Shown here is a 98-nucleotide RNA sequence from Candidatus Enterococcus wittei, a member of the family "Purine riboswitch aptamer". It scores 69 bits against the family's covariance model. Its family is annotated with purine nucleobase biosynthetic process in the Gene Ontology.
[Rfam]
RNA sequence: UUAAAAUAGAAUGAAAUUACUUAUAUAUCGUCAUAAUAAGGAUGACAGUUUCUAGCCAACACCGUAAAUGUUGGACUAUAAGUAAAAAAGUGGAUGGA
Numbered sequence: 001u002u003a004a005a006a007u008a009g010a011a012u013g014a015a016a017u018u019a020c021u022u023a024u025a026u027a028u029c030g031u032c033a034u035a036a037u038a039a040g041g042a043u044g045a046c047a048g049u050u051u052c053u054a055g056c057c058a059a060c061a062c063c064g065u066a067a068a069u070g071u072u073g074g075a076c077u078a079u080a081a082g083u084a085a086a087a088a089a090g091u092g093g094a095u096g097g098a
Stems, first nucleotide, its partner, number of pairs: 018084008030046005056074006